[Rfam]
RNA sequence: GGCGACUUAGCCAAGUGGUAAGGCGUGGGACUGCAACUCCCUGAUCGUCGGUUCAAAUCCGUCAGUCGCCU
Numbered sequence: 001g002g003c004g005a006c007u008u009a010g011c012c013a014a015g016u017g018g019u020a021a022g023g024c025g026u027g028g029g030a031c032u033g034c035a036a037c038u039c040c041c042u043g044a045u046c047g048u049c050g051g052u053u054c055a056a057a058u059c060c061g062u063c064a065g066u067c068g069c070c071u
Stems, first nucleotide, its partner, number of pairs: 001070007010024003027041004047063001049061003
RNA: tRNA
Organism: Roseburia hominis